[Rfam]
RNA: Potassium channel RNA editing signal
Organism: Erinaceus europaeus
RNA sequence: CACAGGUAUGGCGAUAUGGUGCCCAAGACAAUUGCAGGGAAGAUCUUUGGCUCUAUCUGCUCCCUGAGUGGUGUCCUGGUCAUCGCCCUGCCUGUCCCUGUAAUUGUCUCCAAC
Number, nucleotide and partner (000 for none) at each position: 001c000002a000003c000004a000005g110006g000007u000008a107009u106010g105011g104012c000013g000014a101015u100016a099017u000018g097019g096020u000021g095022c094023c000024c000025a000026a000027g000028a000029c000030a000031a000032u000033u000034g000035c000036a000037g077038g076039g075040a074041a000042g000043a000044u000045c000046u000047u000048u000049g063050g062051c000052u000053c000054u000055a000056u000057c000058u000059g000060c000061u000062c050063c049064c000065u000066g000067a000068g000069u000070g000071g000072u000073g000074u040075c039076c038077u037078g000079g000080u000081c000082a000083u000084c000085g000086c000087c000088c000089u000090g000091c000092c000093u000094g022095u021096c019097c018098c000099u016100g015101u014102a000103a000104u011105u010106g009107u008108c000109u000110c005111c000112a000113a000114c000